[Rfam]
RNA sequence: GAACGAGAUGAUGAGGAAUAUGUUUCCCUAUUGGUUUGAUUGCCGAUAUGAUGGCAUCAAUCAUGUAUUAGCUCUAGCUGAUUGUAG
Dot-bracket structure: ..(((................................(..((((........)))).)........................)))..
Numbered sequence: 001g002a003a004c005g006a007g008a009u010g011a012u013g014a015g016g017a018a019u020a021u022g023u024u025u026c027c028c029u030a031u032u033g034g035u036u037u038g039a040u041u042g043c044c045g046a047u048a049u050g051a052u053g054g055c056a057u058c059a060a061u062c063a064u065g066u067a068u069u070a071g072c073u074c075u076a077g078c079u080g081a082u083u084g085u086a087g
Stems, first nucleotide, its partner, number of pairs: 003085003038058001041056004
Small nucleolar RNA Z102/R77: an 87-nucleotide RNA from Quercus lobata. It scores 78 bits against the family's covariance model. The literature on the family includes a 2003 paper in Nucleic Acids Res by Chen et al., "The high diversity of snoRNAs in plants: identification and comparative study of 120 snoRNA genes from Oryza sativa". The family is grouped with related families in Rfam's "SNORD44 clan". The family has 9 seed sequences and 1,346 matches in Rfam 15.1.